[Rfam]
RNA: Glycine riboswitch aptamer
RNA sequence: CCACGGAAUUCGGGAGAAGCUGGCGAUAAGCCGGUGCCGAAGGAGCAGCCGCCCCGGCGAACUCUCAGGCAAAAGGACCGUCUUUCGCAG
Numbered sequence: 001c002c003a004c005g006g007a008a009u010u011c012g013g014g015a016g017a018a019g020c021u022g023g024c025g026a027u028a029a030g031c032c033g034g035u036g037c038c039g040a041a042g043g044a045g046c047a048g049c050c051g052c053c054c055c056g057g058c059g060a061a062c063u064c065u066c067a068g069g070c071a072a073a074a075g076g077a078c079c080g081u082c083u084u085u086c087g088c089a090g
Stems, first nucleotide, its partner, number of pairs: 006085003011080003020034004036070003039066002043064003048058002